[Rfam]
RNA sequence: GGAAGCGCCAAGCUCACUGGUGGGGCUCCCGGACUUCAAAUCCGGUGCGGGGUAGUGAAGGCUGUCCCGGGUGGGUUCGAUUCCCAUGCGCUUCC
Numbered sequence: 001g002g003a004a005g006c007g008c009c010a011a012g013c014u015c016a017c018u019g020g021u022g023g024g025g026c027u028c029c030c031g032g033a034c035u036u037c038a039a040a041u042c043c044g045g046u047g048c049g050g051g052g053u054a055g056u057g058a059a060g061g062c063u064g065u066c067c068c069g070g071g072u073g074g075g076u077u078c079g080a081u082u083c084c085c086a087u088g089c090g091c092u093u094c095c
Stems, first nucleotide, its partner, number of pairs: 001095008012027001014025002017022001029045005048069007072086004